[Rfam]
RNA sequence: AAAUAGCAUACCAAUAAAACUAAGGAUUCUUUAAAGAGUCUUAUUUUGUGAUGAAAAUUUAAUAUGUAAAUCUCAGACGAUAGAAAAUCAAAAAUUCUGUCGUCUUUUUU
Numbered sequence: 001a002a003a004u005a006g007c008a009u010a011c012c013a014a015u016a017a018a019a020c021u022a023a024g025g026a027u028u029c030u031u032u033a034a035a036g037a038g039u040c041u042u043a044u045u046u047u048g049u050g051a052u053g054a055a056a057a058u059u060u061a062a063u064a065u066g067u068a069a070a071u072c073u074c075a076g077a078c079g080a081u082a083g084a085a086a087a088u089c090a091a092a093a094a095u096u097c098u099g100u101c102g103u104c105u106u107u108u109u110u
Stems, first nucleotide, its partner, number of pairs: 004053002007050004016046003023042008075105010
Annotation:
The record is a 110-nucleotide RNA sequence from Finegoldia magna, which matches "Streptococcus sRNA SpF39" in Rfam. The base pairs follow the family's consensus structure, which was predicted with mfold. The literature on the family includes a 2012 paper in PLoS Pathog by Mann et al., "Control of virulence by small RNAs in Streptococcus pneumoniae". It is one of the family's seed sequences.